[Rfam]
RNA: mir-6134 microRNA precursor family
RNA sequence: UCAGUAGGGAACUGACCCUCUAUUUCCACCUGCAUAAAUGAAGCUGAAUGAGGUGGUAGGAUGUAGAGCUAGUUGACACUCUGCUUU
Numbered sequence: 001u002c003a004g005u006a007g008g009g010a011a012c013u014g015a016c017c018c019u020c021u022a023u024u025u026c027c028a029c030c031u032g033c034a035u036a037a038a039u040g041a042a043g044c045u046g047a048a049u050g051a052g053g054u055g056g057u058a059g060g061a062u063g064u065a066g067a068g069c070u071a072g073u074u075g076a077c078a079c080u081c082u083g084c085u086u087u
Stems, first nucleotide, its partner, number of pairs: 003085007010074005018068006026056006033050003